RNA sequence: GCUCUGUGAUGAGCCCAUGCGUGUCAUCUGAGCCCGCUUCCUGUCCUGAGCCUGGGGGAGUGUUUUGCUCCUUGGGGCUGCCAGCUGGCUGAGCGGGUCGCGGGCGGAGGAUCAACCUUGUCUUCUGAGAGC
Numbered sequence: 001g002c003u004c005u006g007u008g009a010u011g012a013g014c015c016c017a018u019g020c021g022u023g024u025c026a027u028c029u030g031a032g033c034c035c036g037c038u039u040c041c042u043g044u045c046c047u048g049a050g051c052c053u054g055g056g057g058g059a060g061u062g063u064u065u066u067g068c069u070c071c072u073u074g075g076g077g078c079u080g081c082c083a084g085c086u087g088g089c090u091g092a093g094c095g096g097g098u099c100g101c102g103g104g105c106g107g108a109g110g111a112u113c114a115a116c117c118u119u120g121u122c123u124u125c126u127g128a129g130a131g132c
Stems, first nucleotide, its partner, number of pairs: 001132004036094004041088003